[Rfam]
The record is a 250-nucleotide RNA from Firmicutes bacterium M10-2, which matches "HNH endonuclease-associated RNA and ORF (HEARO) RNA" in Rfam. Rfam 15.1 lists 952 matches to the family in 249 species. Pairs were carried over by alignment from the consensus structure, which is taken from published work.

RNA sequence: GUCAAUCCACCCAUACUCUAAAGAGUAAUGGGCUUGCAAAAGUCCAUAAUUGACUAGCCUAAGCCUUAACGGGCUACGUUAUGUAAGAAUAGCGGAAUGAUACUUAUCAACCGUAAAUAGUUACCGGUGAGUAUACAGCCUAGCUCACUGCUCUAAGGACUGUCGUUAAACCGAUCUGAGGGGUAGGAUCCGUGCGUCAGUCAAAGACUUCGUCUUAAAACCUUACAUAACAUUGGCGAAGGCUGCUUAC
Numbered sequence: 001g002u003c004a005a006u007c008c009a010c011c012c013a014u015a016c017u018c019u020a021a022a023g024a025g026u027a028a029u030g031g032g033c034u035u036g037c038a039a040a041a042g043u044c045c046a047u048a049a050u051u052g053a054c055u056a057g058c059c060u061a062a063g064c065c066u067u068a069a070c071g072g073g074c075u076a077c078g079u080u081a082u083g084u085a086a087g088a089a090u091a092g093c094g095g096a097a098u099g100a101u102a103c104u105u106a107u108c109a110a111c112c113g114u115a116a117a118u119a120g121u122u123a124c125c126g127g128u129g130a131g132u133a134u135a136c137a138g139c140c141u142a143g144c145u146c147a148c149u150g151c152u153c154u155a156a157g158g159a160c161u162g163u164c165g166u167u168a169a170a171c172c173g174a175u176c177u178g179a180g181g182g183g184u185a186g187g188a189u190c191c192g193u194g195c196g197u198c199a200g201u202c203a204a205a206g207a208c209u210u211c212g213u214c215u216u217a218a219a220a221c222c223u224u225a226c227a228u229a230a231c232a233u234u235g236g237c238g239a240a241g242g243c244u245g246c247u248u249a250c
Stems, first nucleotide, its partner, number of pairs: 001054006009047001011032002013029002017024002033042003057237003061233001062075004078231010121156002125150008140241002158202005164196003170193002173190005179184001
Dot-bracket structure: ((((((..(.((((..((....))...)).))(((....)))....).))))))..(((.(((((......))))..((((((((((.................................((..((((((((.......[[.))))))))....)).(((((.(((...((.(((((.(....).))))).))))).)))))...................)))))))))).).)))..]].........